The record is a 115-nucleotide sequence from Menidia menidia, which matches "Small nucleolar RNA SNORD67" in Rfam. Gene Ontology terms of the family: RNA processing and nucleolus. The family has 15 seed sequences and 781 matches in Rfam 15.1. By type it is a C/D-box small nucleolar RNA. The organism belongs to Menidia, within Eukaryota. snoRNA HBII-166 belongs to the C/D family of snoRNAs.
RNA sequence: GGGCUGACGGUGAUGAGUUGCACUAUUCGUCAGGCUGCUGAUUGCCGUGGCACAGCCGGCCUGUCCUGACCCGAUGUGGAGACACCCCACGUGCACAGGGGCCAUCUGAGUCAGC
Numbered sequence: 001g002g003g004c005u006g007a008c009g010g011u012g013a014u015g016a017g018u019u020g021c022a023c024u025a026u027u028c029g030u031c032a033g034g035c036u037g038c039u040g041a042u043u044g045c046c047g048u049g050g051c052a053c054a055g056c057c058g059g060c061c062u063g064u065c066c067u068g069a070c071c072c073g074a075u076g077u078g079g080a081g082a083c084a085c086c087c088c089a090c091g092u093g094c095a096c097a098g099g100g101g102c103c104a105u106c107u108g109a110g111u112c113a114g115c
Base pairs, nucleotide, nucleotide: 004114006112007111008110026069027068029066031063032062033061035059036058037057043052044051045050